[Rfam]
RNA sequence: GAAUUCAGGUAAUCGCUGCAAUGUUAGACAUUGUAGAGGAAAGUCCAUGCUCGCACGCAUCUGAGAUGAGCGUAGUGUUCGUGCUUAGCCAAAAAAUAAGCUAAGGCAACGUGAGUUGACGGCGGGAAGAUUCCUAAGUCCUUCGUGAUAUGGAUCCCUUCUCUGAAAGUGCCACAGUGACGAAGCUAGUUUGGAAACUUACUAGGUGGAACGAGGUAAACCCCACGAGCGAGAAACCCAAAUUAUGGUAGGGGCACUCUUAUGAAAGAAAUGAAUGGAUUAAGAGACAGUUUUCUGUAGAUAGAUGAUUACCGCCCAUUCGUACGAGGUGCAAACUGUUUGAGUACGUGGGAACAAAACAUGGCUUACGAA
Number, nucleotide and partner (000 for none) at each position: 001g000002a000003a000004u372005u371006c370007a000008g313009g312010u311011a310012a309013u308014c307015g000016c036017u035018g034019c033020a032021a031022u000023g000024u000025u000026a000027g000028a000029c000030a000031u021032u020033g019034u018035a017036g016037a000038g000039g000040a000041a367042a366043g365044u000045c364046c363047a362048u361049g360050c233051u232052c231053g230054c229055a073056c072057g071058c070059a000060u069061c068062u000063g000064a000065g000066a000067u000068g061069a060070g058071c057072g056073u055074a000075g000076u000077g000078u000079u228080c227081g226082u225083g224084c105085u104086u103087a102088g101089c100090c000091a000092a000093a000094a000095a000096a000097u000098a000099a000100g089101c088102u087103a086104a085105g084106g120107c118108a117109a116110c115111g000112u000113g000114a000115g110116u109117u108118g107119a000120c106121g223122g222123c000124g163125g162126g161127a160128a000129g000130a000131u000132u154133c153134c152135u000136a000137a000138g149139u148140c147141c000142u000143u000144c000145g000146u000147g140148a139149u138150a000151u000152g134153g133154a132155u000156c000157c000158c000159u000160u127161c126162u125163c124164u000165g000166a000167a000168a000169g221170u220171g217172c216173c215174a000175c000176a000177g000178u000179g000180a000181c000182g000183a000184a000185g000186c205187u204188a203189g202190u201191u000192u000193g198194g000195a000196a000197a000198c193199u000200u000201a190202c189203u188204a187205g186206g000207u000208g000209g000210a000211a000212c000213g000214a000215g173216g172217u171218a000219a000220a170221c169222c122223c121224c083225a082226c081227g080228a079229g054230c053231g052232a051233g050234a000235a000236a000237c253238c252239c251240a000241a000242a000243u000244u000245a000246u000247g000248g000249u000250a000251g239252g238253g237254g000255c000256a000257c286258u285259c284260u283261u282262a281263u000264g000265a000266a000267a000268g000269a000270a000271a000272u000273g000274a000275a000276u000277g000278g000279a000280u000281u262282a261283a260284g259285a258286g257287a298288c297289a296290g295291u000292u000293u000294u000295c290296u289297g288298u287299a000300g000301a000302u000303a000304g000305a000306u000307g014308a013309u012310u011311a010312c009313c008314g000315c352316c351317c350318a349319u000320u000321c348322g347323u346324a345325c344326g000327a000328g000329g000330u000331g000332c000333a000334a000335a000336c000337u000338g000339u000340u000341u000342g000343a000344g325345u324346a323347c322348g321349u318350g317351g316352g315353a000354a000355c000356a000357a000358a000359a000360c049361a048362u047363g046364g045365c043366u042367u041368a000369c000370g006371a005372a004
Notes:
The record is a 372-nucleotide RNA from Paenisporosarcina cavernae, which matches "Bacterial RNase P class B" in Rfam. A reference for the family is Frank and Pace (1998), "Ribonuclease P: unity and diversity in a tRNA processing ribozyme", Annu Rev Biochem. Ribonuclease P (RNase P) is a ubiquitous endoribonuclease, found in archaea, bacteria and eukarya as well as chloroplasts and mitochondria. The base pairs follow the family's consensus structure, which is taken from published work.